Rfam assigns this 168-nucleotide sequence from Kyrpidia spormannii to the family "M-box riboswitch aptamer (ykoK leader)".

[Rfam]
RNA sequence: CACCAUCCUCGUUAGGUGAGGCGUGUGUACAAACACAGGCCACUGCCCGGAAACGUCGAAAGACGCCAAUGGGUAGACCAGGGAUUGCCGGAUUAAGGCUUUCCCUAAGGUGGCUGAGCAUCCGGGCUCUACGUUGUACACUGCCGAAGCUCAACCAGGGGGAAGGUG
Numbered sequence: 001c002a003c004c005a006u007c008c009u010c011g012u013u014a015g016g017u018g019a020g021g022c023g024u025g026u027g028u029a030c031a032a033a034c035a036c037a038g039g040c041c042a043c044u045g046c047c048c049g050g051a052a053a054c055g056u057c058g059a060a061a062g063a064c065g066c067c068a069a070u071g072g073g074u075a076g077a078c079c080a081g082g083g084a085u086u087g088c089c090g091g092a093u094u095a096a097g098g099c100u101u102u103c104c105c106u107a108a109g110g111u112g113g114c115u116g117a118g119c120a121u122c123c124g125g126g127c128u129c130u131a132c133g134u135u136g137u138a139c140a141c142u143g144c145c146g147a148a149g150c151u152c153a154a155c156c157a158g159g160g161g162g163a164a165g166g167u168g
Stems, first nucleotide, its partner, number of pairs: 006163005011155002013096001015151003020145003025141008039114005045074005054065004081105004087099003116129003
Lineage of the source: Bacteria > Bacillati > Bacillota > Bacilli > Kyrpidia.
Rfam describes the family as follows. M-box riboswitch, also know as ykoK leader is described as a metaloregulatory RNA that sense divalent metals and function as a genetic control element of genes related to divalent metal transport in bacteria. It was first reported upstream of the B.subtilis ykoK gene and genes with related functions in other bacteria.
The pairing is the family consensus, mapped onto this sequence.